[Rfam]
RNA sequence: GGACCUCCGAUCAAGCAAGAGGACCCGCUGAAUUUAAGCAUAUAACUAAGCGGAGGAAAAGAAACUAACCAGGAUUCCCCCAGUAACGGCGAGUGAAGCGGGAAGAGCUCACGUUGUAAAUCUGACUUCGGUCCGAAUUGUAGUCUGGAGAGGCGUGACCAGCUGGAGACGGGGGCGAAGUCUCUUGGAAAAGAGCAUCAAGGAGGGUGACAAUCCCGUUCUUGCCCCCGUUUUCCACGCGUACGGUCCGUUUUCUACGAGUCGAGUUGCUUGGGAUUGCAGCUCAAAGCGGGUGGUAAAUUCCAUCUAAAGCUAAACACGGGUGGGAGACCGAUAGCGAACAAGUACCGUGAGGGAAAGAUGCAAAGAACUUUGAAAAGAGAGUUAAAGAGUGCCUGAAAUUGCUGAAAGGGAAGC
Numbered sequence: 001g002g003a004c005c006u007c008c009g010a011u012c013a014a015g016c017a018a019g020a021g022g023a024c025c026c027g028c029u030g031a032a033u034u035u036a037a038g039c040a041u042a043u044a045a046c047u048a049a050g051c052g053g054a055g056g057a058a059a060a061g062a063a064a065c066u067a068a069c070c071a072g073g074a075u076u077c078c079c080c081c082a083g084u085a086a087c088g089g090c091g092a093g094u095g096a097a098g099c100g101g102g103a104a105g106a107g108c109u110c111a112c113g114u115u116g117u118a119a120a121u122c123u124g125a126c127u128u129c130g131g132u133c134c135g136a137a138u139u140g141u142a143g144u145c146u147g148g149a150g151a152g153g154c155g156u157g158a159c160c161a162g163c164u165g166g167a168g169a170c171g172g173g174g175g176c177g178a179a180g181u182c183u184c185u186u187g188g189a190a191a192a193g194a195g196c197a198u199c200a201a202g203g204a205g206g207g208u209g210a211c212a213a214u215c216c217c218g219u220u221c222u223u224g225c226c227c228c229c230g231u232u233u234u235c236c237a238c239g240c241g242u243a244c245g246g247u248c249c250g251u252u253u254u255c256u257a258c259g260a261g262u263c264g265a266g267u268u269g270c271u272u273g274g275g276a277u278u279g280c281a282g283c284u285c286a287a288a289g290c291g292g293g294u295g296g297u298a299a300a301u302u303c304c305a306u307c308u309a310a311a312g313c314u315a316a317a318c319a320c321g322g323g324u325g326g327g328a329g330a331c332c333g334a335u336a337g338c339g340a341a342c343a344a345g346u347a348c349c350g351u352g353a354g355g356g357a358a359a360g361a362u363g364c365a366a367a368g369a370a371c372u373u374u375g376a377a378a379a380g381a382g383a384g385u386u387a388a389a390g391a392g393u394g395c396c397u398g399a400a401a402u403u404g405c406u407g408a409a410a411g412g413g414a415a416g417c
Stems, first nucleotide, its partner, number of pairs: 024055001025053005035042002065072002076103004086094002106314004113144007121136002124133003150255002152252004157248004164237005170230007180196001182195004199203001206216002264285007291308005348355002371382004
Shown here is a 417-nucleotide part of an RNA from Ectocarpus siliculosus, a member of the family "Eukaryotic large subunit ribosomal RNA". The family's consensus secondary structure is taken from published work. Lineage of the source: Eukaryota > Sar > Ochrophyta > Ectocarpaceae > Ectocarpus. For this family Rfam cites "Crystal structure of the ribosome at 5.5 A resolution" (Yusupov et al., Science, 2001).